[Rfam]
The record is a 48-nucleotide sequence, which matches "L31-Actinobacteria ribosomal protein leader" in Rfam. The base pairs follow the family's consensus structure, which is taken from published work. The family's RNA type in Rfam is cis-regulatory leader.

RNA sequence: CCGGUUCCGGUUCACGUGCCCCCACACGGGUGGGCACGACCCGGCGCC
Numbered sequence: 001c002c003g004g005u006u007c008c009g010g011u012u013c014a015c016g017u018g019c020c021c022c023c024a025c026a027c028g029g030g031u032g033g034g035c036a037c038g039a040c041c042c043g044g045c046g047c048c
Stems, first nucleotide, its partner, number of pairs: 003048003007044004015038007022030001